Shown here is a 99-nucleotide RNA from Anaerofustis stercorihominis, a member of the family "TPP riboswitch aptamer (THI element)". Rfam's curators write: Vitamin B(1) in its active form thiamin pyrophosphate (TPP) is an essential coenzyme that is synthesised by coupling of pyrimidine and thiazole moieties in bacteria. Rfam links the family to the GO term thiamine pyrophosphate binding. It scores 76 bits against the family's covariance model. Taxonomically the source falls in Anaerofustis stercorihominis (Bacteria, Bacillati, Clostridia, Eubacteriales). The base pairs follow the family's consensus structure, which is taken from published work.
RNA sequence: UAAACAAGCUAGGGGAGCCGUAAGGCUGAGAAAACAAUUUGUUCACCCUUACUACUUGAUCCGGAUCAUACCGGCGUAAGGAAGCUGAAGAUUUCGUUA
Number, nucleotide and partner (000 for none) at each position: 001u000002a000003a000004a000005c000006a000007a086008g085009c084010u083011a049012g048013g047014g046015g000016a000017g026018c025019c024020g000021u000022a000023a000024g019025g018026c017027u000028g000029a000030g000031a000032a000033a043034a042035c041036a040037a000038u000039u000040u036041g035042u034043u033044c000045a000046c014047c013048c012049u011050u000051a000052c000053u000054a000055c080056u079057u078058g077059a000060u000061c074062c073063g072064g071065a000066u000067c000068a000069u000070a000071c064072c063073g062074g061075c000076g000077u058078a057079a056080g055081g000082a000083a010084g009085c008086u007087g000088a000089a000090g000091a000092u000093u000094u000095c000096g000097u000098u000099a000